[Rfam]
RNA: mir-1180 microRNA precursor family
RNA sequence: GCUGCGGGACCCAUCCGGCUGGGAAUAGUGCUCCUUGUUUCCGGCUCAAAUGGGUGUGUCGAGCCU
Number, nucleotide and partner (000 for none) at each position: 001g064002c063003u061004g060005c000006g000007g057008g000009a055010c054011c053012c052013a051014u050015c000016c000017g047018g045019c044020u043021g042022g041023g040024a039025a038026u037027a036028g035029u000030g000031c000032u000033c000034c000035u028036u027037g026038u025039u024040u023041c022042c021043g020044g019045c018046u000047c017048a000049a000050a014051u013052g012053g011054g010055u009056g000057u007058g000059u000060c004061g003062a000063g002064c001065c000066u000